[Rfam]
RNA sequence: GUUUCUAGUGAUGUUUAUGUUUACCAUGCUAAUACUGAUACAUUGAUGAGCAUUUGACUAUUUUUCCAAGGGAACC
Dot-bracket structure: (((((.................................................................))))).
Shown here is a 76-nucleotide sequence from Zingiber officinale, a member of the family "Small nucleolar RNA snoR53Y". The match comes from Rfam's covariance-model search (47 bits). Lineage of the source: Eukaryota > Streptophyta > Streptophytina > Tracheophyta > Zingiber. Its family is annotated with RNA processing and nucleolus in the Gene Ontology. Rfam 15.1 lists 513 matches to the family in 230 species. The base pairs follow the family's consensus structure, which was predicted with WAR. It is annotated as a C/D-box small nucleolar RNA.